[Rfam]
RNA sequence: CCGGGAACGGGAGGCGUUGACGCGCGGCGUGCCCACUGCGGUCGCCUCGACGCCCACGAACGCCGCGCAGAGCCACUGGCGAGACCGACCCGUGGAAGG
Number, nucleotide and partner (000 for none) at each position: 001c099002c098003g000004g000005g000006a000007a093008c092009g091010g090011g089012a000013g074014g073015c072016g000017u000018u000019g000020a000021c000022g068023c067024g066025c065026g064027g063028c062029g061030u000031g000032c000033c000034c000035a000036c000037u000038g000039c000040g086041g085042u082043c081044g080045c079046c078047u000048c000049g000050a000051c000052g000053c000054c000055c000056a000057c000058g000059a000060a000061c029062g028063c027064c026065g025066c024067g023068c022069a000070g000071a000072g015073c014074c013075a000076c000077u000078g046079g045080c044081g043082a042083g000084a000085c041086c040087g000088a000089c011090c010091c009092g008093u007094g000095g000096a000097a000098g002099g001
RNA: c-di-GMP-II-GAG riboswitch aptamer